[Rfam]
RNA sequence: UGCCAGUAUUUUACGAUUAAGAAGCAAUUGCCUCUUAUGCAGAUCGUGUAUUAACUU
Number, nucleotide and partner (000 for none) at each position: 001u000002g000003c000004c000005a000006g000007u000008a000009u000010u000011u000012u000013a000014c000015g000016a000017u000018u037019a036020a035021g034022a033023a000024g031025c030026a000027a000028u000029u000030g025031c024032c000033u022034c021035u020036u019037a018038u000039g000040c000041a000042g000043a000044u000045c000046g000047u000048g000049u000050a000051u000052u000053a000054a000055c000056u000057u000
Shown here is a 57-nucleotide sequence from Champereia manillana, a member of the family "Plastid-rps18 3UTR RNA". The literature on the family includes a 2023 paper in Plant Commun by Richter et al., "Retrograde signaling in plants: A critical review focusing on the GUN pathway and beyond". The source organism's lineage runs through Eukaryota, Magnoliopsida, eudicotyledons, Pentapetalae and Champereia.